Alphaproteobacterial ar14: a 113-nucleotide sequence from Candidatus Tokpelaia sp. JSC161.
Rfam describes the family as follows. Smr14C2 was renamed NfeR1 (Nodule Formation Efficiency RNA) highly expressed in salt stress and during the symbiotic interaction on legume roots.
The base pairs follow the family's consensus structure.
Lineage of the source: Bacteria > Pseudomonadati > Alphaproteobacteria > Hyphomicrobiales > Candidatus Tokpelaia.
[Rfam]
RNA sequence: GACGAUAACUAGGCUCAGUCUCCUCCAAGAGCCUUGUAUGAAUACGGCGUUUCCUCCUCCCAAGCUGUAUUCGGAAUUGAAGGCCGUGCAAUCCCUCCCGCGCGGCCUUUUCU
Numbered sequence: 001g002a003c004g005a006u007a008a009c010u011a012g013g014c015u016c017a018g019u020c021u022c023c024u025c026c027a028a029g030a031g032c033c034u035u036g037u038a039u040g041a042a043u044a045c046g047g048c049g050u051u052u053c054c055u056c057c058u059c060c061c062a063a064g065c066u067g068u069a070u071u072c073g074g075a076a077u078u079g080a081a082g083g084c085c086g087u088g089c090a091a092u093c094c095c096u097c098c099c100g101c102g103c104g105g106c107c108u109u110u111u112c113u
Base pairs, nucleotide, nucleotide: 008037009036011034012033013032014031015030016029040072041071042070043069044068045067046066047065048064081108082107083106084105085104086103087102088101089100